Rfam assigns this 112-nucleotide RNA from Povalibacter uvarum to the family "Guanidine-I riboswitch aptamer". On this family, see Barrick et al., Proc Natl Acad Sci U S A 2004: "New RNA motifs suggest an expanded scope for riboswitches in bacterial genetic control". Rfam describes the family as follows. This family represents a conserved RNA structure found upstream of the ykkC and yxkD genes in Bacillus subtilis and related genes in other bacteria. The base pairs follow the family's consensus structure. Lineage of the source: Bacteria > Pseudomonadota > Gammaproteobacteria > Steroidobacterales > Povalibacter.
RNA sequence: ACAAUGUGCGUCUAGGGUUCCGGCUGCGCAGCGGUGCGUGGUGCUGGUCCGAGAGAGGCAGUCCGGGCAGCGAUCGCUGACGGAUACACGGCGGGAUAAAAGCCCGGGAGGU
Numbered sequence: 001a002c003a004a005u006g007u008g009c010g011u012c013u014a015g016g017g018u019u020c021c022g023g024c025u026g027c028g029c030a031g032c033g034g035u036g037c038g039u040g041g042u043g044c045u046g047g048u049c050c051g052a053g054a055g056a057g058g059c060a061g062u063c064c065g066g067g068c069a070g071c072g073a074u075c076g077c078u079g080a081c082g083g084a085u086a087c088a089c090g091g092c093g094g095g096a097u098a099a100a101a102g103c104c105c106g107g108g109a110g111g112u
Base pairs, nucleotide, nucleotide: 007060008059009058011056012055015050016049020047021046022044023042024041025040026039027038028037061085062084063083064082065081087107089110093105094104095103